This 154-nucleotide sequence from Ensete ventricosum belongs to the Rfam family "small nucleolar RNA snoR134".
RNA sequence: CCGCAUGGUGCUACCCCGGGCUCCGCUGAGGAGCUCCGCUCCCUGGUGACGACGCGAGCCCCAAUGCCCGUGCAAGAUCGACUAGGCCGCGCUGUGUUACAGAUCGGUUCGCGAUCUCCAUCGGCUGAUCUGUGUCAAUGCGAUGGCUAAAUUA
Numbered sequence: 001c002c003g004c005a006u007g008g009u010g011c012u013a014c015c016c017c018g019g020g021c022u023c024c025g026c027u028g029a030g031g032a033g034c035u036c037c038g039c040u041c042c043c044u045g046g047u048g049a050c051g052a053c054g055c056g057a058g059c060c061c062c063a064a065u066g067c068c069c070g071u072g073c074a075a076g077a078u079c080g081a082c083u084a085g086g087c088c089g090c091g092c093u094g095u096g097u098u099a100c101a102g103a104u105c106g107g108u109u110c111g112c113g114a115u116c117u118c119c120a121u122c123g124g125c126u127g128a129u130c131u132g133u134g135u136c137a138a139u140g141c142g143a144u145g146g147c148u149a150a151a152u153u154a
Stems, first nucleotide, its partner, number of pairs: 003073006010067002018061005086147004095137002098134006106125001108123001
The family's consensus secondary structure was predicted with RNAalifold. It scores 68 bits against the family's covariance model. The literature on the family includes a 2009 paper in Nucleic Acids Res by Chen and Wu, "Mining small RNA sequencing data: a new approach to identify small nucleolar RNAs in Arabidopsis". Its family is annotated with RNA processing and nucleolus in the Gene Ontology.